[Rfam]
RNA sequence: GUGCAUCCAACAGGAAUUAAACCCGCAAAUUUACCAAUUAUGAAUUGAGCACUUUAACCAUUCAACCAUGGAUGC
Numbered sequence: 001g002u003g004c005a006u007c008c009a010a011c012a013g014g015a016a017u018u019a020a021a022c023c024c025g026c027a028a029a030u031u032u033a034c035c036a037a038u039u040a041u042g043a044a045u046u047g048a049g050c051a052c053u054u055u056a057a058c059c060a061u062u063c064a065a066c067c068a069u070g071g072a073u074g075c
Stems, first nucleotide, its partner, number of pairs: 003075006011025001013023002040069003045065005
RNA: Plastid-ycf2 5UTR RNA
Organism: Triticum aestivum